The record is a 208-nucleotide part of an RNA from Babesia ovis, which matches "Eukaryotic large subunit ribosomal RNA" in Rfam.
RNA sequence: CAAUUGGAACGAACGCCCGCGCGACGUCGCCAAAGCGCUCCUGCGCCCCGUGACUCGCGCCCGGUCAGCGACGCGUCGCGCGCCUCGACACCCGCGGCUCCGCAGCGCCCACCCGGCGUGCGCGGCUCUGCAGAAUCCUGACGCGCGGCGCGGCACUCUGUGCUGCUGCCCGCCGUACAAGUUCCAACUGACCCGUCUUGAAACACGG
Numbered sequence: 001c002a003a004u005u006g007g008a009a010c011g012a013a014c015g016c017c018c019g020c021g022c023g024a025c026g027u028c029g030c031c032a033a034a035g036c037g038c039u040c041c042u043g044c045g046c047c048c049c050g051u052g053a054c055u056c057g058c059g060c061c062c063g064g065u066c067a068g069c070g071a072c073g074c075g076u077c078g079c080g081c082g083c084c085u086c087g088a089c090a091c092c093c094g095c096g097g098c099u100c101c102g103c104a105g106c107g108c109c110c111a112c113c114c115g116g117c118g119u120g121c122g123c124g125g126c127u128c129u130g131c132a133g134a135a136u137c138c139u140g141a142c143g144c145g146c147g148g149c150g151c152g153g154c155a156c157u158c159u160g161u162g163c164u165g166c167u168g169c170c171c172g173c174c175g176u177a178c179a180a181g182u183u184c185c186a187a188c189u190g191a192c193c194c195g196u197c198u199u200g201a202a203a204c205a206c207g208g
Stems, first nucleotide, its partner, number of pairs: 001190002004187007017147001025143005151172003193208004